This 402-nucleotide sequence from Pseudomonas benzenivorans belongs to the Rfam family "Pseudomonas sRNA CrcZ". For this family Rfam cites "Identification of 17 Pseudomonas aeruginosa sRNAs and prediction of sRNA-encoding genes in 10 diverse pathogens using the bioinformatic tool sRNAPredict2" (Livny et al., Nucleic Acids Res, 2006). Pairs were carried over by alignment from the consensus structure, which was predicted with WAR. The source organism's lineage runs through Bacteria, Pseudomonadati, Gammaproteobacteria, Pseudomonadales and Pseudomonas. Its family is annotated with carbon catabolite repression of transcription in the Gene Ontology.

RNA sequence: ACAACAACAAUAACAAGCAGCGCCCAGACAACAAAAAUAAGACGUACCGACUCCAGCACAACAAAAACAACAAGGCGGAGGCGCAGCUAACUGAUUCUUUUGGAAAGGAAUUGCCUUUGGGGCUUGCCCCACAACCAGACCGAGAACAAUAAAACUGCCCCGAGGCAGAACCCGUACUGGUUGGAUCACGAAAUGAUCAUGGCAGCGUCAGCAUCCAAAGCAAUCCGUUUGCUAUUGACUCCCAGCUUGGGAGGUUUUCCAGAAGUCCCUGACUUGAUGGAACGAGCAACUCAACAAAAACAACAAGCUCGCCAUAACAAUAAAAACAAAGCACGCACCUACUUGGGGGGGAGCCUAGGCUCCCCCAGUAGCUUCAGCCUUCCGCGUUUCGACUCUCCCCCG
Dot-bracket structure: ...............................................((.((((......................)))).))..............(((((.........(((.................(((((((................(((((....)))))........)))))))...........................)))..))))).................(((.(........).)))......................(((((.((((...................))))..................((((.............(((((((((....))))))))..).)))).....)))))..................